[Rfam]
RNA sequence: CCAGAAAAGUUAAUGUGUUAGCUUUUAAGAGCAGACUCAAAGUGUUCUGCUAGUGGUCUUAGCUCGCUACGGUGAGAGCUAAGUAACCGCGAGACCAUCAAAAUUGCGGGAAAGUCCUUAGAGCCUUUGCUACCGCCUACGCAUGGAAACAUAGCGUUAGUGCACCAGGGUAAUGAACCUCGGGUAUGGUAAAAACGCAAAGGAUUGGAUAAUCUGCAGCCAAGUCCUAAGGCUAUUAACUUAGCUAUGGAUGCAGUUCAACGACUAGAUGGUGGUCGGUUCUGACGUCGCUUACAUUGUAGUUUAAACGCGUUCAGGGCUUAAGAUAUAGUCUGACCCCUCAGAGAUGAGGCU
Dot-bracket structure: ....(((((((((....)))))))))..................................................................(((((.((....((((((....(((.........................................................................................)))...))))))((...((((....((((......))))...))))...))...[.[[[[[..)).))))).(((((((............................)))))))........]]]]]]....(((((....)))))..
Numbered sequence: 001c002c003a004g005a006a007a008a009g010u011u012a013a014u015g016u017g018u019u020a021g022c023u024u025u026u027a028a029g030a031g032c033a034g035a036c037u038c039a040a041a042g043u044g045u046u047c048u049g050c051u052a053g054u055g056g057u058c059u060u061a062g063c064u065c066g067c068u069a070c071g072g073u074g075a076g077a078g079c080u081a082a083g084u085a086a087c088c089g090c091g092a093g094a095c096c097a098u099c100a101a102a103a104u105u106g107c108g109g110g111a112a113a114g115u116c117c118u119u120a121g122a123g124c125c126u127u128u129g130c131u132a133c134c135g136c137c138u139a140c141g142c143a144u145g146g147a148a149a150c151a152u153a154g155c156g157u158u159a160g161u162g163c164a165c166c167a168g169g170g171u172a173a174u175g176a177a178c179c180u181c182g183g184g185u186a187u188g189g190u191a192a193a194a195a196c197g198c199a200a201a202g203g204a205u206u207g208g209a210u211a212a213u214c215u216g217c218a219g220c221c222a223a224g225u226c227c228u229a230a231g232g233c234u235a236u237u238a239a240c241u242u243a244g245c246u247a248u249g250g251a252u253g254c255a256g257u258u259c260a261a262c263g264a265c266u267a268g269a270u271g272g273u274g275g276u277c278g279g280u281u282c283u284g285a286c287g288u289c290g291c292u293u294a295c296a297u298u299g300u301a302g303u304u305u306a307a308a309c310g311c312g313u314u315c316a317g318g319g320c321u322u323a324a325g326a327u328a329u330a331g332u333c334u335g336a337c338c339c340c341u342c343a344g345a346g347a348u349g350a351g352g353c354u
Stems, first nucleotide, its partner, number of pairs: 005026009093277005099271002105218006115209003219257002224252004232245004261334001263333005279320007339352005